[Rfam]
RNA sequence: GUGCACUGUGUAUCGUAGGUCUCUUUGAUUGUUUAGAGCGGCCUUUGAGCUACGGUGCAUAAAAUAAUAGCUGAUUAGUCAGCAGGCAGCCAGACAACUGCCGAGGUGGAUCCACAGAUGAACAGCUCUUUUUAAUGCUGUUUCUCUACUAAUUUCACCUUAUAUUU
Numbered sequence: 001g002u003g004c005a006c007u008g009u010g011u012a013u014c015g016u017a018g019g020u021c022u023c024u025u026u027g028a029u030u031g032u033u034u035a036g037a038g039c040g041g042c043c044u045u046u047g048a049g050c051u052a053c054g055g056u057g058c059a060u061a062a063a064a065u066a067a068u069a070g071c072u073g074a075u076u077a078g079u080c081a082g083c084a085g086g087c088a089g090c091c092a093g094a095c096a097a098c099u100g101c102c103g104a105g106g107u108g109g110a111u112c113c114a115c116a117g118a119u120g121a122a123c124a125g126c127u128c129u130u131u132u133u134a135a136u137g138c139u140g141u142u143u144c145u146c147u148a149c150u151a152a153u154u155u156c157a158c159c160u161u162a163u164a165u166u167u
Base pairs, nucleotide, nucleotide: 002059003058004057005056006055010050011049013048014047015046017044018043019042020041021040023038024037025036026035027034103161104160105159106158107157108156109155110154120143121142122141123140124139125138126137
RNA: small nucleolar RNA snoR143
Organism: Abrus precatorius